[Rfam]
RNA: Small nucleolar RNA U2-30
Organism: Moschus moschiferus
RNA sequence: GAGCAAUGAUGAAAAGGUUUCACUACAUAUCUUUAUAACCAUAAAGAUUUCUACACUUGAUCUGAGCUCU
Number, nucleotide and partner (000 for none) at each position: 001g069002a068003g067004c066005a000006a000007u000008g000009a000010u000011g000012a000013a034014a033015a032016g031017g030018u029019u000020u000021c000022a000023c000024u000025a000026c000027a000028u000029a018030u017031c016032u015033u014034u013035a000036u000037a000038a000039c000040c000041a000042u000043a000044a000045a000046g000047a000048u000049u000050u000051c000052u000053a000054c000055a000056c000057u000058u000059g000060a000061u000062c000063u000064g000065a000066g004067c003068u002069c001070u000